[Rfam]
RNA sequence: UCCACCGUGAGGUGGAAUCUGAAGGAAGCCGAAGGCAAAAUCUUGGUCUGAGGAAUACAAAUUACAUAUAAGGCUUACUAAGGGUGGAUGAGUUUGCAAUACAAAACCAAGUCCAACACUGCCCAAACCCUUAGGAGUAAAUGUAGCAGAUAUAUGAGAUGAAAGUUGUUGCU
Numbered sequence: 001u002c003c004a005c006c007g008u009g010a011g012g013u014g015g016a017a018u019c020u021g022a023a024g025g026a027a028g029c030c031g032a033a034g035g036c037a038a039a040a041u042c043u044u045g046g047u048c049u050g051a052g053g054a055a056u057a058c059a060a061a062u063u064a065c066a067u068a069u070a071a072g073g074c075u076u077a078c079u080a081a082g083g084g085u086g087g088a089u090g091a092g093u094u095u096g097c098a099a100u101a102c103a104a105a106a107c108c109a110a111g112u113c114c115a116a117c118a119c120u121g122c123c124c125a126a127a128c129c130c131u132u133a134g135g136a137g138u139a140a141a142u143g144u145a146g147c148a149g150a151u152a153u154a155u156g157a158g159a160u161g162a163a164a165g166u167u168g169u170u171g172c173u
Stems, first nucleotide, its partner, number of pairs: 001016006028173001030171003035166002040160006046151005062146006073138003078134007086114004092107004
Rfam assigns this 173-nucleotide RNA sequence from Clostridium tetanomorphum to the family "Group II catalytic intron D1-D4-3". Lineage of the source: Bacteria > Bacillati > Bacillota > Eubacteriales > Clostridium. The base pairs follow the family's consensus structure. A search with the family's covariance model found it, with a score of 152 bits.